[Rfam]
RNA: small nucleolar RNA snoR135
RNA sequence: AGUGCAGAGUUGUGUGUGUUCGUAUUUUGCUUGAUUAAAAUGUAUAUUGCUUGCCAAAAGUGUUACUUGCUAUAGCAGUUUUGGAAAGAUGGCCAGUAAGGUUUUAUAUUCUUUGUUGGAAAUCUCAACAAUCAUUUUUUCUAGAAGU
Numbered sequence: 001a002g003u004g005c006a007g008a009g010u011u012g013u014g015u016g017u018g019u020u021c022g023u024a025u026u027u028u029g030c031u032u033g034a035u036u037a038a039a040a041u042g043u044a045u046a047u048u049g050c051u052u053g054c055c056a057a058a059a060g061u062g063u064u065a066c067u068u069g070c071u072a073u074a075g076c077a078g079u080u081u082u083g084g085a086a087a088g089a090u091g092g093c094c095a096g097u098a099a100g101g102u103u104u105u106a107u108a109u110u111c112u113u114u115g116u117u118g119g120a121a122a123u124c125u126c127a128a129c130a131a132u133c134a135u136u137u138u139u140u141c142u143a144g145a146a147g148u
Base pairs, nucleotide, nucleotide: 004070005069006068007067009064014045015044016043017042018041019040083141084140085139086138087137088136089135090134091133092132096129097128